RNA: Antizyme RNA frameshifting stimulation element
Organism: Myotis lucifugus
RNA sequence: UCACGUCCCACCCACCCCUGCAGAUCCCGGGUGGGCGAGGGGAUGGUCAGGGGGUC
Numbered sequence: 001u002c003a004c005g006u007c008c009c010a011c012c013c014a015c016c017c018c019u020g021c022a023g024a025u026c027c028c029g030g031g032u033g034g035g036c037g038a039g040g041g042g043a044u045g046g047u048c049a050g051g052g053g054g055u056c
Stems, first nucleotide, its partner, number of pairs: 006042004011035006023056006